[Rfam]
RNA sequence: UCUUUCUUGGACGUUUCCUCCCUAAACUCGGCGGUGCUUCGGCACCGCCUUUUUUUUCGCUUUU
Numbered sequence: 001u002c003u004u005u006c007u008u009g010g011a012c013g014u015u016u017c018c019u020c021c022c023u024a025a026a027c028u029c030g031g032c033g034g035u036g037c038u039u040c041g042g043c044a045c046c047g048c049c050u051u052u053u054u055u056u057u058c059g060c061u062u063u064u
Stems, first nucleotide, its partner, number of pairs: 001011003030049008